[Rfam]
RNA sequence: CCCCGUUCGGGUGACUGGCGCUGGAGGUGGGCAACCACCGGGGAGCUCGAACGCAGAUCGCCGCGCGCCUGGGCUCCUCAC
Numbered sequence: 001c002c003c004c005g006u007u008c009g010g011g012u013g014a015c016u017g018g019c020g021c022u023g024g025a026g027g028u029g030g031g032c033a034a035c036c037a038c039c040g041g042g043g044a045g046c047u048c049g050a051a052c053g054c055a056g057a058u059c060g061c062c063g064c065g066c067g068c069c070u071g072g073g074c075u076c077c078u079c080a081c
Base pairs, nucleotide, nucleotide: 004053005052006051007050008049009048010047011046012045015042016041017069018068019067020066021065027038028037029036030035060074061073062072
The record is an 81-nucleotide RNA sequence from Caulobacter henricii, which matches "ZMP/ZTP riboswitch aptamer (pfl RNA motif)" in Rfam. It scores 57 bits against the family's covariance model. The base pairs follow the family's consensus structure, which is taken from published work. NCBI's taxonomy places the organism under Bacteria, Pseudomonadati, Alphaproteobacteria, Caulobacterales, Caulobacter. Rfam links the family to the GO terms regulation of purine nucleotide biosynthetic process and one-carbon metabolic process.